[Rfam]
RNA sequence: UGUGGCCAAUGAUGGGAAACAUACAUUUGCCUACAUUGUCUGAUCAUUCUCUAAUGACAGAAACAUGUAAAAUGAUCUGAGGCCAUA
Numbered sequence: 001u002g003u004g005g006c007c008a009a010u011g012a013u014g015g016g017a018a019a020c021a022u023a024c025a026u027u028u029g030c031c032u033a034c035a036u037u038g039u040c041u042g043a044u045c046a047u048u049c050u051c052u053a054a055u056g057a058c059a060g061a062a063a064c065a066u067g068u069a070a071a072a073u074g075a076u077c078u079g080a081g082g083c084c085a086u087a
Stems, first nucleotide, its partner, number of pairs: 001087002004084004
Description
A member of the RNA family "Small nucleolar RNA SNORD34" from Cuscuta campestris, 87 nucleotides long. For this family Rfam cites "Purified box C/D snoRNPs are able to reproduce site-specific 2'-O-methylation of target RNA in vitro" (Galardi et al., Mol Cell Biol, 2002). Gene Ontology terms of the family: nucleolus and RNA processing. snoRNA U34 is found in intron 5 of the ribosomal protein L13a gene in humans. The family's RNA type in Rfam is C/D-box small nucleolar RNA. It scores 48 bits against the family's covariance model.